Nucleotides: 234
Stems, first nucleotide, its partner, number of pairs: 005091003009088010021046003027040003050057002060072004094232002097229001101222006110198011121186001123155004130147006159183003164179004200210003
Number, partner (000 for none) and nucleotide at each position: 001000g002000a003000g004000u005091u006090a007089a008000u009088c010087u011086u012085u013084u014083c015082u016081g017080g018079c019000a020000a021046g022045g023044u024000a025000a026000a027040u028039c029038c030000u031000u032000u033000a034000g035000a036000a037000a038029g039028g040027a041000a042000a043000a044023g045022c046021c047000g048000a049000a050057g051056c052000g053000a054000a055000a056051g057050c058000g059000a060072g061071u062070c063069u064000g065000a066000a067000u068000a069063g070062g071061g072060c073000g074000a075000u076000u077000g078000a079018g080017u081016c082015a083014g084013a085012g086011g087010a088009g089007u090006u091005a092000g093000a094232c095231g096000c097229g098000a099000a100000a101222g102221c103220c104219g105218g106217u107000g108000a109000u110198c111197u112196a113195c114194c115193c116192a117191u118190g119189a120188c121186c122000a123155g124154g125153u126152u127000g128000a129000a130147g131146c132145g133144u134143u135142g136000g137000u138000a139000a140000a141000a142135c143134a144133a145132c146131g147130u148000g149000g150000a151000g152126g153125a154124c155123c156000g157000a158000a159183c160182c161181a162000g163000u164179g165178a166177a167176u168000g169000u170000u171000g172000u173000a174000a175000c176167g177166u178165u179164c180000u181161u182160g183159g184000a185000u186121g187000a188120g189119u190118u191117g192116u193115g194114g195113g196112u197111a198110g199000g200210a201209g202208u203000g204000a205000a206000a207000g208202g209201c210200u211000a212000a213000u214000c215000a216000a217106a218105c219104c220103g221102g222101c223000a224000g225000a226000u227000a228000g229097c230000u231095c232094g233000u234000a